[Rfam]
RNA sequence: GACAUCAUCUUAAUAACCAAUUGUAUAACCUCAAUAAUAUGGUUUGAGGGUCUCUACCAGGAGCCGUAAAAUCCUGAUUACAAAAAUGUGUAGCGCGCUU
Dot-bracket structure: ....................(((((...((((((.........))))))........(((((.........)))))..))))).................
Shown here is a 100-nucleotide RNA sequence from Paenibacillus albus, a member of the family "Purine riboswitch aptamer". A search with the family's covariance model found it, with a score of 67 bits. Lineage of the source: Bacteria > Bacillati > Bacillota > Bacilli > Paenibacillus. On this family, see Mandal et al., Cell 2003: "Riboswitches Control Fundamental Biochemical Pathways in Bacillus subtilis and Other Bacteria".